About this RNA: The family of this 122-nucleotide sequence from Ancylobacter tetraedralis is "Glycine riboswitch aptamer". This family represents the bacterial glycine riboswitch. The source organism's lineage runs through Bacteria, Pseudomonadati, Alphaproteobacteria, Hyphomicrobiales and Ancylobacter.

RNA sequence: AUCUGGAGAGAGGCGUCGGCGCCCGUCUAACGGUGCUGGGACGUCCACCGAAGGGGAAGCCCGGGAUUUCCGGACGGCGCCGCCGUCUGUCUCGGGGCGAGCUCUCAGGUACCGCGACAGAU
Numbered sequence: 001a002u003c004u005g006g007a008g009a010g011a012g013g014c015g016u017c018g019g020c021g022c023c024c025g026u027c028u029a030a031c032g033g034u035g036c037u038g039g040g041a042c043g044u045c046c047a048c049c050g051a052a053g054g055g056g057a058a059g060c061c062c063g064g065g066a067u068u069u070c071c072g073g074a075c076g077g078c079g080c081c082g083c084c085g086u087c088u089g090u091c092u093c094g095g096g097g098c099g100a101g102c103u104c105u106c107a108g109g110u111a112c113c114g115c116g117a118c119a120g121a122u
Base pairs, nucleotide, nucleotide: 001122002121003120004119005118012045013044014043015042016041017040047110048109049108050106051105054104055103056102060097061096